Source information: The family of this 112-nucleotide RNA from Paenibacillus prosopidis is "Purine riboswitch aptamer".
[Rfam]
RNA sequence: UAAACAACAACAUAUAUUUUUCGUAUAACCUCACGGCAGUAUUGGAUGUAAUAGGGUGAGGGUUUCUACGGGAAGCCUUAACUUCCUAACUACGAAUAUAAGAUCAUUUAGA
Numbered sequence: 001u002a003a004a005c006a007a008c009a010a011c012a013u014a015u016a017u018u019u020u021u022c023g024u025a026u027a028a029c030c031u032c033a034c035g036g037c038a039g040u041a042u043u044g045g046a047u048g049u050a051a052u053a054g055g056g057u058g059a060g061g062g063u064u065u066c067u068a069c070g071g072g073a074a075g076c077c078u079u080a081a082c083u084u085c086c087u088a089a090c091u092a093c094g095a096a097u098a099u100a101a102g103a104u105c106a107u108u109u110a111g112a
Base pairs, nucleotide, nucleotide: 018098020096021095022094023093024092025091029061030060031059032058033057034056070087071086072085073084074083075082
A search with the family's covariance model found it, with a score of 50 bits. Riboswitches are metabolite binding domains within certain messenger RNAs that serve as precision sensors for their corresponding targets. The source organism's lineage runs through Bacteria, Bacillati, Bacillota, Caryophanales and Paenibacillus.